[Rfam]
RNA sequence: AGGCAAUGAGGAGGAACAAAGUCAUGCACCACUCUGAUUUAAUCGGUGUUGAUAAUUGACUCAUAACCCAUAUUUAUCUGAGCCU
Numbered sequence: 001a002g003g004c005a006a007u008g009a010g011g012a013g014g015a016a017c018a019a020a021g022u023c024a025u026g027c028a029c030c031a032c033u034c035u036g037a038u039u040u041a042a043u044c045g046g047u048g049u050u051g052a053u054a055a056u057u058g059a060c061u062c063a064u065a066a067c068c069c070a071u072a073u074u075u076a077u078c079u080g081a082g083c084c085u
Stems, first nucleotide, its partner, number of pairs: 001085004

The family of this 85-nucleotide RNA from Elaeis guineensis is "Small nucleolar RNA Z221/R21b". It scores 65 bits against the family's covariance model. The family has 12 seed sequences and 588 matches in Rfam 15.1. The literature on the family includes a 2003 paper in Nucleic Acids Res by Chen et al., "The high diversity of snoRNAs in plants: identification and comparative study of 120 snoRNA genes from Oryza sativa".